[Rfam]
RNA: c-di-GMP-I riboswitch aptamer
RNA sequence: UUUUGAUAAAGGCAAACUAUUUGAAAGAGUAGGACGCAAAGCCUAGGGUCUAAGGUAGCAAUGCUAUGAUCGCCUGGUUACCAAA
Numbered sequence: 001u002u003u004u005g006a007u008a009a010a011g012g013c014a015a016a017c018u019a020u021u022u023g024a025a026a027g028a029g030u031a032g033g034a035c036g037c038a039a040a041g042c043c044u045a046g047g048g049u050c051u052a053a054g055g056u057a058g059c060a061a062u063g064c065u066a067u068g069a070u071c072g073c074c075u076g077g078u079u080a081c082c083a084a085a
Stems, first nucleotide, its partner, number of pairs: 012037002017032006040079004045075003048070003055064003